RNA sequence: GAGCACUCUGGGAGCUAUAACCUAGGGGCGGUAGCGUA
Numbered sequence: 001g002a003g004c005a006c007u008c009u010g011g012g013a014g015c016u017a018u019a020a021c022c023u024a025g026g027g028g029c030g031g032u033a034g035c036g037u038a
Stems, first nucleotide, its partner, number of pairs: 008025005